[Rfam]
RNA: mir-571 microRNA precursor family
RNA sequence: GGUAAGAGGGAAGUCUUCCAUUUUUUUUUUCGUAGUCAUGUCUGUGGAACACAAAGGGGAGAACUUCCAGACCUGCC
Numbered sequence: 001g002g003u004a005a006g007a008g009g010g011a012a013g014u015c016u017u018c019c020a021u022u023u024u025u026u027u028u029u030u031c032g033u034a035g036u037c038a039u040g041u042c043u044g045u046g047g048a049a050c051a052c053a054a055a056g057g058g059g060a061g062a063a064c065u066u067c068c069a070g071a072c073c074u075g076c077c
Stems, first nucleotide, its partner, number of pairs: 001077004006072001009068005014062002017060003022056003028049008